[Rfam]
RNA sequence: CGACUUAUGAUGAGCUGUGUUGUCUGAGCAUGACCGCGUGAAGCUCAAUCUGAGUACUCUGAAGUCC
Dot-bracket structure: .((((......(((.....((...(((((.............)))))....))...)))...)))).
Numbered sequence: 001c002g003a004c005u006u007a008u009g010a011u012g013a014g015c016u017g018u019g020u021u022g023u024c025u026g027a028g029c030a031u032g033a034c035c036g037c038g039u040g041a042a043g044c045u046c047a048a049u050c051u052g053a054g055u056a057c058u059c060u061g062a063a064g065u066c067c
Stems, first nucleotide, its partner, number of pairs: 002066004012059003020053002025047005
Description
A member of the RNA family "Small Nucleolar RNA SNORD64" from Phyllostomus discolor, 67 nucleotides long. The organism belongs to Phyllostomus, within Eukaryota. The family has 17 seed sequences and 130 matches in Rfam 15.1. A search with the family's covariance model found it, with a score of 65 bits. Rfam classes the family as a C/D-box small nucleolar RNA. The literature on the family includes a 2000 paper in Proc Natl Acad Sci U S A by Cavaille et al., "Identification of brain-specific and imprinted small nucleolar RNA genes exhibiting an unusual genomic organization". The human snoRNA HBII-13 belongs to the C/D family of snoRNAs. It is expressed mainly in the brain, but is also in the lungs, the kidneys and muscle. HBII-13 snoRNA has no identified RNA target and is encoded together with HBII-436, HBII-437, HBII-438A/B and the clusters of HBII-85, HBII-52 snoRNA in a 460 kb intron of the large, paternally expressed, transcription unit (SNURF-SNRNP-UBE3A AS). This is antisense to maternally expressed UBE3A gene (Runt et al., 2001). The family is grouped with related families in Rfam's "SNORD74 clan".